RNA sequence: AGUCGAUUAUUCAUAAAUAAGAGUAGUGGACAGAAGUGAUUUCUGAGGAAUUCUACAAUGAGACU
Numbered sequence: 001a002g003u004c005g006a007u008u009a010u011u012c013a014u015a016a017a018u019a020a021g022a023g024u025a026g027u028g029g030a031c032a033g034a035a036g037u038g039a040u041u042u043c044u045g046a047g048g049a050a051u052u053c054u055a056c057a058a059u060g061a062g063a064c065u
Stems, first nucleotide, its partner, number of pairs: 001065004
RNA: Small nucleolar RNA SNORD75
Organism: Myripristis murdjan